[Rfam]
RNA sequence: AGUUCUAUGGCCAAACUGGUCAAGGCAACGCCGAUUAGAGGCGAAUAUGCGGGUUCGAGUCCCGCUAGAACGG
Numbered sequence: 001a002g003u004u005c006u007a008u009g010g011c012c013a014a015a016c017u018g019g020u021c022a023a024g025g026c027a028a029c030g031c032c033g034a035u036u037a038g039a040g041g042c043g044a045a046u047a048u049g050c051g052g053g054u055u056c057g058a059g060u061c062c063c064g065c066u067a068g069a070a071c072g073g
Stems, first nucleotide, its partner, number of pairs: 002071006010026003029043004049065005
The record is a 73-nucleotide sequence from Operophtera brumata, which matches "tRNA" in Rfam. The base pairs follow the family's consensus structure, which is taken from published work.